[Rfam]
RNA: Salmonella enterica sRNA STnc40
Organism: Citrobacter koseri
RNA sequence: ACAGUGCCACGGCCGUCUGAGCUAAGGUCUGAAUAAAGACAAUGAGGCGCAGGUGACUGCGCCUUUUUU
Number, nucleotide and partner (000 for none) at each position: 001a000002c019003a018004g017005u000006g013007c012008c000009a000010c000011g000012g007013c006014c000015g000016u000017c004018u003019g002020a000021g000022c000023u000024a000025a000026g000027g000028u000029c000030u000031g000032a000033a000034u000035a000036a000037a000038g000039a000040c000041a000042a067043u000044g065045a064046g063047g062048c061049g060050c059051a058052g057053g000054u000055g000056a000057c052058u051059g050060c049061g048062c047063c046064u045065u044066u000067u042068u000069u000